[Rfam]
Background:
Rfam assigns this 104-nucleotide RNA sequence from Desemzia incerta to the family "THF (Tetrahydrofolate) riboswitch aptamer". Tetrahydrofolate (THF) riboswitch was first reported for Ames et al. as an RNA motif in 5' untranslated (5'-UTR)regions of folate transport and biosynthesis genes in Firmicutes genomes.
RNA sequence: AUCAGAGUAGAAAAUAAAGCGUCAAGUGCUGAAUGGAUGGGAUGUUGCCUUCAGACGAAAAACCGACUAAGUUGGUUUGCGGUUUUAUUUUUGCAUUCGCUGCA
Numbered sequence: 001a002u003c004a005g006a007g008u009a010g011a012a013a014a015u016a017a018a019g020c021g022u023c024a025a026g027u028g029c030u031g032a033a034u035g036g037a038u039g040g041g042a043u044g045u046u047g048c049c050u051u052c053a054g055a056c057g058a059a060a061a062a063c064c065g066a067c068u069a070a071g072u073u074g075g076u077u078u079g080c081g082g083u084u085u086u087a088u089u090u091u092u093g094c095a096u097u098c099g100c101u102g103c104a
Base pairs, nucleotide, nucleotide: 003102004101005100010092011091012090013089014088015087016086017085018084019083020081021080022079026056027055029054030053031052032051033050035049036048040098041097042096043095044094060078061077062076063075064074065073066072